Rfam assigns this 78-nucleotide RNA sequence from Flexivirga oryzae to the family "ZMP/ZTP riboswitch aptamer (pfl RNA motif)".

[Rfam]
RNA sequence: CUGAUCCCACACGACUGGCGCAGGUGGGGUAACCACCAGGGAGUGGAGUCGCGUGCAUCGCCCGCCUGGGUGCGCGCA
Numbered sequence: 001c002u003g004a005u006c007c008c009a010c011a012c013g014a015c016u017g018g019c020g021c022a023g024g025u026g027g028g029g030u031a032a033c034c035a036c037c038a039g040g041g042a043g044u045g046g047a048g049u050c051g052c053g054u055g056c057a058u059c060g061c062c063c064g065c066c067u068g069g070g071u072g073c074g075c076g077c078a
Stems, first nucleotide, its partner, number of pairs: 003050003007046002011044002015040002017066004024036004055073005